[Rfam]
RNA sequence: UUCCAGAAGACCAUGAUGCUUUAUUUUCCAAGCACAUAACUGAUUUCAAUAUGUGGAAAGAUGAUUCUGAGUGUUCUGGAA
Numbered sequence: 001u002u003c004c005a006g007a008a009g010a011c012c013a014u015g016a017u018g019c020u021u022u023a024u025u026u027u028c029c030a031a032g033c034a035c036a037u038a039a040c041u042g043a044u045u046u047c048a049a050u051a052u053g054u055g056g057a058a059a060g061a062u063g064a065u066u067c068u069g070a071g072u073g074u075u076c077u078g079g080a081a
Base pairs, nucleotide, nucleotide: 001081002080003079004078005077006076008074010072011071
Notes:
Small nucleolar RNA SNORD121A: an 81-nucleotide RNA sequence from Xenopus laevis. The source organism's lineage runs through Eukaryota, Teleostomi, Batrachia, Xenopodinae and Xenopus. Pairs were carried over by alignment from the consensus structure, which was predicted with WAR. Rfam classes the family as a C/D-box small nucleolar RNA.